[Rfam]
RNA: mir-2763 microRNA precursor family
Organism: Chrysodeixis includens
RNA sequence: UACAACAUUAUCCAAAGUAAGGAGCAUAAUAUCUUUAGACAUAUAUCACGAUAGAUUACGUUCUCUACUUUGGAGAACGUUGUA
Numbered sequence: 001u002a003c004a005a006c007a008u009u010a011u012c013c014a015a016a017g018u019a020a021g022g023a024g025c026a027u028a029a030u031a032u033c034u035u036u037a038g039a040c041a042u043a044u045a046u047c048a049c050g051a052u053a054g055a056u057u058a059c060g061u062u063c064u065c066u067a068c069u070u071u072g073g074a075g076a077a078c079g080u081u082g083u084a
Stems, first nucleotide, its partner, number of pairs: 002083005008077002011074009021064003025060001027058003032055003038047002